[Rfam]
THF (Tetrahydrofolate) riboswitch aptamer: a 100-nucleotide RNA sequence from Granulicatella elegans.
RNA sequence: AUCAGAGUAGAAUACAUUGCGUUAAGUGCCAAAUGGAUGGGAUGUUGCCGAUUGGACGAAAAAGAGAACUCUUUGCGGUAGUGUAUUCGCAUUCGCUGCA
Numbered sequence: 001a002u003c004a005g006a007g008u009a010g011a012a013u014a015c016a017u018u019g020c021g022u023u024a025a026g027u028g029c030c031a032a033a034u035g036g037a038u039g040g041g042a043u044g045u046u047g048c049c050g051a052u053u054g055g056a057c058g059a060a061a062a063a064g065a066g067a068a069c070u071c072u073u074u075g076c077g078g079u080a081g082u083g084u085a086u087u088c089g090c091a092u093u094c095g096c097u098g099c100a
Stems, first nucleotide, its partner, number of pairs: 003098003010088010020077003026057002029055004034050003040094005061074004
Overview:
Gene Ontology term of the family: tetrahydrofolate metabolic process. The literature on the family includes a 2010 paper in Chem Biol by Ames et al., "A eubacterial riboswitch class that senses the coenzyme tetrahydrofolate". Tetrahydrofolate (THF) riboswitch was first reported for Ames et al. as an RNA motif in 5' untranslated (5'-UTR)regions of folate transport and biosynthesis genes in Firmicutes genomes.